RNA sequence: AGCUCUUAUGAGGGACCAUCACUUCUCUUCAUUAGGGCGAAGGAGUGAGGAAAGGACCAGACAGAGCGGACUUUCAAACUGUAAACAGGCAGGUCUGAGUGCCUGAGCUCGCCUUUGCAUUUUACUUCACCUUCUCCGGAGUUCGAGCAGUUGGCGUGUCUACUUCACUUCUUUUAAGAGAAGGGAGGGGGCCCAGGCAGC
Numbered sequence: 001a002g003c004u005c006u007u008a009u010g011a012g013g014g015a016c017c018a019u020c021a022c023u024u025c026u027c028u029u030c031a032u033u034a035g036g037g038c039g040a041a042g043g044a045g046u047g048a049g050g051a052a053a054g055g056a057c058c059a060g061a062c063a064g065a066g067c068g069g070a071c072u073u074u075c076a077a078a079c080u081g082u083a084a085a086c087a088g089g090c091a092g093g094u095c096u097g098a099g100u101g102c103c104u105g106a107g108c109u110c111g112c113c114u115u116u117g118c119a120u121u122u123u124a125c126u127u128c129a130c131c132u133u134c135u136c137c138g139g140a141g142u143u144c145g146a147g148c149a150g151u152u153g154g155c156g157u158g159u160c161u162a163c164u165u166c167a168c169u170u171c172u173u174u175u176a177a178g179a180g181a182a183g184g185g186a187g188g189g190g191g192c193c194c195a196g197g198c199a200g201c
Base pairs, nucleotide, nucleotide: 002020004018007015009013028141029140030139034135035134036133037132039128040127041126042125047121048120050118053116054115068096069095070094071093072092073091097112099110101108151196152195153194154193156192157191159189160188163184164183165182166180168178169177170176
RNA: Connexin-43 internal ribosome entry site (IRES)
Organism: Cnephaeus nilssonii